[Rfam]
RNA sequence: GCAGCGCCCUGGCUUGUCGCUGGCAUCUAUGACGGAUGCGAGAGGAAAGUCCGGGCAGCAUAGGGCACCCCACUUCUGAAAAUGGAAGCCAUUGGUGACAGUGGGAUAAGGCAGAAGAAAACAACCGCCUGCCUAUCUAGACGGGUAAGGGUGAGAAGGUGGUGUAAGAGACCACCAGCCAGCGGGUGAUCGCUGGGCUGUGUCUUCUGGGGGCUGCAAGUCCAUGUAUACCGCAGUUUGAAGGUUGCCCGCCUAAUGUCCCUAUGGGACUCUGCGGAGGGUAGGAUGCUUGAGCCUUGGGGUGACUCAAGGCCUAGAUAAAUGACAGGCGCUUCCUUGGAAGUAACAGAACCCGGCUUAUAGGGGCACUGCUUUU
Number, nucleotide and partner (000 for none) at each position: 001g372002c371003a370004g369005c000006g367007c366008c365009c364010u363011g361012g330013c329014u328015u327016g326017u325018c324019g000020c042021u041022g000023g039024c038025a037026u036027c035028u034029a000030u000031g000032a000033c000034g028035g027036a026037u025038g024039c023040g000041a021042g020043a000044g000045g000046a000047a359048a358049g357050u000051c356052c355053g354054g353055g352056c216057a215058g214059c213060a000061u000062a000063g000064g265065g000066c000067a000068c212069c211070c210071c209072a208073c088074u087075u086076c085077u084078g000079a000080a000081a000082a000083u000084g077085g076086a075087a074088g073089c103090c000091a102092u101093u100094g099095g000096u000097g000098a000099c094100a093101g092102u091103g089104g207105g206106a000107u000108a000109a205110g204111g203112c202113a201114g000115a000116a000117g000118a000119a000120a000121a000122c000123a000124a000125c150126c149127g146128c145129c144130u143131g142132c000133c140134u139135a000136u000137c000138u000139a134140g133141a000142c131143g130144g129145g128146u127147a000148a000149g126150g125151g000152u000153g000154a000155g000156a000157a000158g176159g175160u174161g173162g172163u171164g000165u000166a000167a000168g000169a000170g000171a163172c162173c161174a160175c159176c158177a000178g198179c196180c195181a194182g193183c192184g191185g190186g000187u000188g000189a000190u185191c184192g183193c182194u181195g180196g179197g000198c178199u000200g000201u113202g112203u111204c110205u109206u105207c104208u072209g071210g070211g069212g068213g059214c058215u057216g056217c000218a000219a000220g287221u286222c285223c284224a000225u000226g000227u000228a000229u000230a000231c277232c276233g275234c274235a273236g000237u000238u000239u000240g000241a000242a000243g000244g000245u000246u000247g000248c000249c000250c000251g000252c000253c000254u000255a000256a000257u000258g270259u269260c268261c267262c000263u000264a000265u064266g000267g261268g260269a259270c258271u000272c000273u235274g234275c233276g232277g231278a000279g000280g000281g000282u000283a000284g223285g222286a221287u220288g000289c000290u000291u000292g000293a000294g313295c312296c311297u310298u309299g308300g307301g306302g000303u000304g000305a000306c301307u300308c299309a298310a297311g296312g295313c294314c000315u000316a000317g000318a000319u000320a000321a000322a000323u000324g018325a017326c016327a015328g014329g013330c012331g000332c000333u000334u000335c000336c000337u000338u000339g000340g000341a000342a000343g000344u000345a000346a000347c000348a000349g000350a000351a000352c055353c054354c053355g052356g051357c049358u048359u047360a000361u011362a000363g010364g009365g008366g007367c006368a000369c004370u003371g002372c001373u000374u000375u000376u000
RNA: Bacterial RNase P class A
Organism: Prevotella sp. CAG:1320